[Rfam]
RNA sequence: CCAAAGGCUCUUCUAAGAGCCACACAUAAUUCCACAAAUGAGUUGU
Numbered sequence: 001c002c003a004a005a006g007g008c009u010c011u012u013c014u015a016a017g018a019g020c021c022a023c024a025c026a027u028a029a030u031u032c033c034a035c036a037a038a039u040g041a042g043u044u045g046u
Base pairs, nucleotide, nucleotide: 006021007020008019009018010017011016

Rfam assigns this 46-nucleotide sequence from Sciurus carolinensis to the family "Histone 3' UTR stem-loop". The organism belongs to Sciurus, within Eukaryota. About the family: The mRNAs of metazoan histone genes lack a poly-A tail. 3' end processing occurs at a site between a highly conserved stem-loop (modelled by this family) and a purine rich region around 20 nts downstream (the histone downstream element, or HDE). The stem-loop is bound by a 31 kDa stem-loop binding protein (SLBP - also termed the histone hairpin binding protein, or HBP). The match comes from Rfam's covariance-model search (42 bits). Pairs were carried over by alignment from the consensus structure, which is taken from published work.